[Rfam]
RNA sequence: AAACAGCCCCCUAUGUUUUGAUUCUUUGACAGUUUUGGACCACCAAGGCAAAAAAAAAAAUAAAAAAUUGACACGUGGUAUCCACGUCAGCGUUGACCGAGUCAACAAUGGACUGAGGGUCCAAAACUGCCAAAGAAUCAAAACAUAUGGGGCUGUUU
Dot-bracket structure: ((.(((((...(((((((((((((((((.((((((((((((..((...........................((.(((...))).))..........................))..)))))))))))).)))))))))))))))))...))))).))
RNA: MIR2619 microRNA precursor family